[Rfam]
RNA sequence: AUAUGUUUUGUUGAUGGUCCUCUAACCAUUUCCUUGAAAUAUACAGAAUAUGAUGAAAUUAAAAUGGUUAGAUGACCAUCAACAAACACAUU
Number, nucleotide and partner (000 for none) at each position: 001a000002u000003a000004u000005g087006u086007u085008u084009u000010g083011u082012u081013g080014a079015u078016g077017g076018u075019c074020c000021u072022c071023u070024a069025a068026c067027c066028a065029u064030u063031u062032c000033c000034u000035u000036g000037a000038a000039a000040u000041a000042u000043a000044c000045a000046g000047a000048a000049u000050a000051u000052g000053a000054u000055g000056a000057a000058a000059u000060u000061a000062a031063a030064a029065u028066g027067g026068u025069u024070a023071g022072a021073u000074g019075a018076c017077c016078a015079u014080c013081a012082a011083c010084a008085a007086a006087c005088a000089c000090a000091u000092u000
A member of the RNA family "MIR827 microRNA precursor family" from Carnegiea gigantea, 92 nucleotides long. The organism belongs to Carnegiea, within Eukaryota. Rfam links the family to the GO terms miRNA-mediated post-transcriptional gene silencing and RISC complex. The family's consensus secondary structure was predicted with RNAalifold.